[Rfam]
Rfam assigns this 89-nucleotide sequence from Saccharothrix violaceirubra to the family "Glycine riboswitch aptamer". Lineage of the source: Bacteria > Bacillati > Actinomycetes > Pseudonocardiaceae > Saccharothrix.
RNA sequence: CGAUGUCGCGCGGGAGAGUCCCCGACCAGGGGCGCCGAAGGAGCAACUCCUCCCCGGAAUCUCUCAGGCACAGCUACCGCCCGACGAAG
Numbered sequence: 001c002g003a004u005g006u007c008g009c010g011c012g013g014g015a016g017a018g019u020c021c022c023c024g025a026c027c028a029g030g031g032g033c034g035c036c037g038a039a040g041g042a043g044c045a046a047c048u049c050c051u052c053c054c055c056g057g058a059a060u061c062u063c064u065c066a067g068g069c070a071c072a073g074c075u076a077c078c079g080c081c082c083g084a085c086g087a088a089g
Stems, first nucleotide, its partner, number of pairs: 006084003010080004020032004034069003037065002041063003047057002